[Rfam]
RNA sequence: GGUGGCACAUUUGAGGCCAUAGCAGCAAGCGCUCAUGGUGCAGUCUGUCUGAUUCCAAUGAAAUCUGUGAAUUCUGCU
Numbered sequence: 001g002g003u004g005g006c007a008c009a010u011u012u013g014a015g016g017c018c019a020u021a022g023c024a025g026c027a028a029g030c031g032c033u034c035a036u037g038g039u040g041c042a043g044u045c046u047g048u049c050u051g052a053u054u055c056c057a058a059u060g061a062a063a064u065c066u067g068u069g070a071a072u073u074c075u076g077c078u
Base pairs, nucleotide, nucleotide: 015045016044017043021078022077023076024075025074027073028072029041030040031039049067051065052064053063054062